[Rfam]
RNA: mir-26 microRNA precursor family
Organism: Geococcyx californianus
RNA sequence: CUGGCCCCAGGUUCAAGUAAUCCAGGAUAGGCUGUGGUCUGGGCAAUCAGCCUGUUCUUGGUUACUUGGCUCUGGAGCCCG
Numbered sequence: 001c002u003g004g005c006c007c008c009a010g011g012u013u014c015a016a017g018u019a020a021u022c023c024a025g026g027a028u029a030g031g032c033u034g035u036g037g038u039c040u041g042g043g044c045a046a047u048c049a050g051c052c053u054g055u056u057c058u059u060g061g062u063u064a065c066u067u068g069g070c071u072c073u074g075g076a077g078c079c080c081g
Base pairs, nucleotide, nucleotide: 003079004078005077007075008074009073010072011071014068015067016066017065018064019063020062021061022060024058025057026056027055028054029053030052031051032050033049
Dot-bracket structure: ..(((.(((((..(((((((((.((((((((((...............)))))))))).)))))))))..))))).)))..